[Rfam]
RNA sequence: CGGCUGCUACAACGGCUUCCUGGCGUAGCAGCGACGUAUCAUAACGGAGCA
Numbered sequence: 001c002g003g004c005u006g007c008u009a010c011a012a013c014g015g016c017u018u019c020c021u022g023g024c025g026u027a028g029c030a031g032c033g034a035c036g037u038a039u040c041a042u043a044a045c046g047g048a049g050c051a
Stems, first nucleotide, its partner, number of pairs: 004031007013022002015050003019047002
Shown here is a 51-nucleotide RNA sequence from Aliishimia ponticola, a member of the family "SAM/SAH riboswitch aptamer". The family's consensus secondary structure is taken from published work. A search with the family's covariance model found it, with a score of 50 bits. For this family Rfam cites "The structure of the SAM/SAH-binding riboswitch" (Weickhmann et al., Nucleic Acids Res, 2019). The organism belongs to Aliishimia, within Bacteria.